This 130-nucleotide RNA from Otolemur garnettii belongs to the Rfam family "Small nucleolar RNA SNORA43".
The organism belongs to Otolemur, within Eukaryota.
Gene Ontology terms of the family: RNA processing and nucleolus.
Clan: SNORA17 clan.
From the family's description: ACA43 is a member of the H/ACA class of snoRNA that guide the sites of modification of uridines to pseudouridines.
RNA sequence: GCUGUACUGGACCUGCCAGCACCGCAGGUGUGGCUGUGCCUGUGACAACAGGGCACAGAGAAAGUAGCUAUUUCUAUGCUCAGUGUUCAGAAUCCUGUGAGCCCUAAGAAUGGUUUAUAGCCUGACAUUU
Dot-bracket structure: ..(((.(((..............((((............)))).....))).)))...........((.....(((..((....(((((........)))))....))..)))......)).........